[Rfam]
RNA sequence: UAUGCUUUUAAGUUAGUCCUGUGAGGCUAAGAAGGUAGAAUCUUUAGUAACGGUAGACUUAGACUAGCCUGAGCUAGAUCUAAGUAAAUGUAUUGAGAUUAAACCACUUAGUUAAGCUUGGCCUAACUAAGUGGUUUUUUGU
Numbered sequence: 001u002a003u004g005c006u007u008u009u010a011a012g013u014u015a016g017u018c019c020u021g022u023g024a025g026g027c028u029a030a031g032a033a034g035g036u037a038g039a040a041u042c043u044u045u046a047g048u049a050a051c052g053g054u055a056g057a058c059u060u061a062g063a064c065u066a067g068c069c070u071g072a073g074c075u076a077g078a079u080c081u082a083a084g085u086a087a088a089u090g091u092a093u094u095g096a097g098a099u100u101a102a103a104c105c106a107c108u109u110a111g112u113u114a115a116g117c118u119u120g121g122c123c124u125a126a127c128u129a130a131g132u133g134g135u136u137u138u139u140u141g142u
Stems, first nucleotide, its partner, number of pairs: 003037007013030006057085007064077005101137014
Dot-bracket structure: ..(((((((...((((((......)))))))))))))...................((((((((((((....))))).)))))))...............((((((((((((((.........)))))))))))))).....
This 142-nucleotide sequence from Ligilactobacillus saerimneri belongs to the Rfam family "PyrR binding site". The match comes from Rfam's covariance-model search (56 bits). This family represents the PyrR binding site and terminator structure. Rfam 15.1 lists 1,498 matches to the family in 930 species. Lineage of the source: Bacteria > Bacilli > Lactobacillaceae > Ligilactobacillus > Ligilactobacillus saerimneri. The base pairs follow the family's consensus structure, which is taken from published work.